[Rfam]
RNA sequence: AUUCUGCUGUGAUGAAUUAAGAACAAAUUCACAUGUCAGACUUCAGAGAUUUUUAUAAUCAAUGAGAAUGACAACUCUUAUUCACUGAGCAGAAA
Numbered sequence: 001a002u003u004c005u006g007c008u009g010u011g012a013u014g015a016a017u018u019a020a021g022a023a024c025a026a027a028u029u030c031a032c033a034u035g036u037c038a039g040a041c042u043u044c045a046g047a048g049a050u051u052u053u054u055a056u057a058a059u060c061a062a063u064g065a066g067a068a069u070g071a072c073a074a075c076u077c078u079u080a081u082u083c084a085c086u087g088a089g090c091a092g093a094a095a
Stems, first nucleotide, its partner, number of pairs: 002094006048060004
RNA: Small nucleolar RNA R64/Z200 family
Organism: Cicer arietinum